[Rfam]
RNA: FMN riboswitch aptamer (RFN element)
RNA sequence: AAUAGUCUUCAGGGCGGGGUGCAAUUCCCCACCGGUGGUAUAGCCCACGAGCCGCAAGGCAUGAUUCGGUGUAAUUCCGAGGCCGACAGUAAAGUCUGGAUGAAAGAAGAAAUUU
Numbered sequence: 001a002a003u004a005g006u007c008u009u010c011a012g013g014g015c016g017g018g019g020u021g022c023a024a025u026u027c028c029c030c031a032c033c034g035g036u037g038g039u040a041u042a043g044c045c046c047a048c049g050a051g052c053c054g055c056a057a058g059g060c061a062u063g064a065u066u067c068g069g070u071g072u073a074a075u076u077c078c079g080a081g082g083c084c085g086a087c088a089g090u091a092a093a094g095u096c097u098g099g100a101u102g103a104a105a106g107a108a109g110a111a112a113u114u115u
Stems, first nucleotide, its partner, number of pairs: 006110005017029003031095002033085002035048004043083002053059001065081005087098003